[Rfam]
RNA sequence: CAAUCUCCGAUGAGAAAACUAAAACUGCAACAAUAUGAUGGGAUAUAUCCCAUGAUUCGUUGUAUUUAAGUCUCUGUGAUUG
Number, nucleotide and partner (000 for none) at each position: 001c082002a081003a080004u079005c078006u000007c000008c000009g000010a000011u000012g000013a000014g000015a000016a000017a000018a000019c000020u000021a000022a000023a000024a000025c000026u000027g000028c000029a000030a000031c000032a000033a000034u000035a000036u000037g000038a000039u000040g051041g050042g049043a048044u000045a000046u000047a000048u043049c042050c041051c040052a000053u000054g000055a000056u000057u000058c000059g000060u000061u000062g000063u000064a000065u000066u000067u000068a000069a000070g000071u000072c000073u000074c000075u000076g000077u000078g005079a004080u003081u002082g001
A member of the RNA family "Small nucleolar RNA Z199" from Senna tora, 82 nucleotides long.
By type it is a C/D-box small nucleolar RNA.
Lineage of the source: Eukaryota > Embryophyta > Euphyllophyta > Fabales > Senna.
The match comes from Rfam's covariance-model search (64 bits).
The literature on the family includes a 2003 paper in Nucleic Acids Res by Chen et al., "The high diversity of snoRNAs in plants: identification and comparative study of 120 snoRNA genes from Oryza sativa".
Rfam describes the family as follows. snoZ199 is a C/D box small nucleolar RNA, which acts as a methylation guide RNA for sites on 18S and 25S rRNA. Rice snoZ199 is reported to be homologous to Arabidopsis snoR13.